The record is a 75-nucleotide RNA sequence from Crocodylus porosus, which matches "Mammalian CPEB3 ribozyme" in Rfam. NCBI's taxonomy places the organism under Eukaryota, Opisthokonta, Metazoa, Crocodylidae, Crocodylus. Gene Ontology term of the family: RNA nuclease activity. A search with the family's covariance model found it, with a score of 45 bits.

RNA sequence: UCACAAGUCCAAGGCCAUAGCAGAAGUGCUUAUGGCACGGCCUAUCAGAUUCCAAUGAAAUCUGCAAACUCUGCU
Numbered sequence: 001u002c003a004c005a006a007g008u009c010c011a012a013g014g015c016c017a018u019a020g021c022a023g024a025a026g027u028g029c030u031u032a033u034g035g036c037a038c039g040g041c042c043u044a045u046c047a048g049a050u051u052c053c054a055a056u057g058a059a060a061u062c063u064g065c066a067a068a069c070u071c072u073g074c075u
Stems, first nucleotide, its partner, number of pairs: 013042004019075006026038003046064006